[Rfam]
RNA: Bacterial RNase P class A
Organism: Ruminococcaceae bacterium AF10-16
RNA sequence: CGAGUAUGACAGACAGUCGCGCGGCGAGGCCGAAAGGCCCGCUGUGAGGAAAGUCCGGGCUCCACAGGGCAAGGAUAACGGGUAACGCCCGCCCAGAGCGAUCUGAGGAAAAGUGCAACAGAAAUAGACCGCCCGAGGUAUGCAAGUAUCUCAGGUAAGGAUGGAAAGGUGCGGUAAGAGCGCACCCGUCGGCUCGAGAGUGUCCGAUGCUGUAAACUCUAUCCGGAGCAACACCGGUAUGGGAGCAAUAGGUUGGCCCGACCGCUCCCGGGGUGGCUGGAGUACCGCGGCAACGCGGCGCGUAGAUAGAUGACUGUCAAAUACAGAACCCGGCUUACAGUCAUGCUCGUGCA
Numbered sequence: 001c002g003a004g005u006a007u008g009a010c011a012g013a014c015a016g017u018c019g020c021g022c023g024g025c026g027a028g029g030c031c032g033a034a035a036g037g038c039c040c041g042c043u044g045u046g047a048g049g050a051a052a053g054u055c056c057g058g059g060c061u062c063c064a065c066a067g068g069g070c071a072a073g074g075a076u077a078a079c080g081g082g083u084a085a086c087g088c089c090c091g092c093c094c095a096g097a098g099c100g101a102u103c104u105g106a107g108g109a110a111a112a113g114u115g116c117a118a119c120a121g122a123a124a125u126a127g128a129c130c131g132c133c134c135g136a137g138g139u140a141u142g143c144a145a146g147u148a149u150c151u152c153a154g155g156u157a158a159g160g161a162u163g164g165a166a167a168g169g170u171g172c173g174g175u176a177a178g179a180g181c182g183c184a185c186c187c188g189u190c191g192g193c194u195c196g197a198g199a200g201u202g203u204c205c206g207a208u209g210c211u212g213u214a215a216a217c218u219c220u221a222u223c224c225g226g227a228g229c230a231a232c233a234c235c236g237g238u239a240u241g242g243g244a245g246c247a248a249u250a251g252g253u254u255g256g257c258c259c260g261a262c263c264g265c266u267c268c269c270g271g272g273g274u275g276g277c278u279g280g281a282g283u284a285c286c287g288c289g290g291c292a293a294c295g296c297g298g299c300g301c302g303u304a305g306a307u308a309g310a311u312g313a314c315u316g317u318c319a320a321a322u323a324c325a326g327a328a329c330c331c332g333g334c335u336u337a338c339a340g341u342c343a344u345g346c347u348c349g350u351g352c353a
Base pairs, nucleotide, nucleotide: 001349002348003347004346005345006344007343008342009341010340012318013317014316015315016314017313018312020046021045022044023043024042025041026040028038051336052335053334055333056332057331058330059329060228061227062226063225068259069258073224074223075222076221077220079091080090081089082088093107094105095104096103097102108219109218113217114216115213116212117211129160130159131156132155133154135152136151137150138149139148140147141146168186169185170184171183172182173181188208189207190206191205192204193202195200232275233274234273235272241269242268243267244266245265246264251263252262253261254260282301283300285298286297287296288295289294